RNA sequence: UAAAGAAGCGCCGGCUUUUGAAAAAACAGCAAAGCACCGAAGAGGCAAUUUCCCGUCCCACUGCGGAUAAGGAAAGAAUCUUUCAGGUUAAAGACGGAGCGCAUGCC
Numbered sequence: 001u002a003a004a005g006a007a008g009c010g011c012c013g014g015c016u017u018u019u020g021a022a023a024a025a026a027c028a029g030c031a032a033a034g035c036a037c038c039g040a041a042g043a044g045g046c047a048a049u050u051u052c053c054c055g056u057c058c059c060a061c062u063g064c065g066g067a068u069a070a071g072g073a074a075a076g077a078a079u080c081u082u083u084c085a086g087g088u089u090a091a092a093g094a095c096g097g098a099g100c101g102c103a104u105g106c107c
Stems, first nucleotide, its partner, number of pairs: 008100002011097003015034004036088003039084002043082003049075005